[Rfam]
RNA sequence: AUGUGUUAAAGAGGCCGCGGUUGUAAAUAGUACUUUUACAUAAGGAAAGGUGCAAUCGCCGAAAUACAUAAUGACUUAAAAAGUCUUGUGUGUUGGGACUAUGCUGAAUAAGUAUAGUACUGUCAACAGAAAUUUGCCCAAUUUUCUGUUGGAGCACUUUCACAUUG
Number, nucleotide and partner (000 for none) at each position: 001a000002u000003g000004u000005g000006u162007u000008a160009a159010a158011g157012a000013g000014g000015c000016c000017g059018c058019g057020g056021u055022u054023g053024u052025a051026a000027a000028u000029a000030g000031u000032a000033c044034u043035u042036u000037u000038a000039c000040a000041u000042a035043a034044g033045g000046a000047a000048a000049g000050g000051u025052g024053c023054a022055a021056u020057c019058g018059c017060c000061g000062a000063a094064a093065u092066a091067c090068a089069u088070a087071a086072u000073g085074a084075c083076u000077u000078a000079a000080a000081a000082a000083g075084u074085c073086u071087u070088g069089u068090g067091u066092g065093u064094u063095g121096g120097g000098a118099c117100u116101a115102u114103g113104c112105u111106g000107a000108a000109u000110a000111a105112g104113u103114a102115u101116a100117g099118u098119a000120c096121u095122g000123u152124c151125a150126a149127c148128a147129g146130a145131a144132a143133u000134u000135u000136g000137c000138c000139c000140a000141a000142u000143u132144u131145u130146c129147u128148g127149u126150u125151g124152g123153a000154g000155c000156a000157c011158u010159u009160u008161c000162a006163c000164a000165u000166u000167g000
RNA: Lysine riboswitch aptamer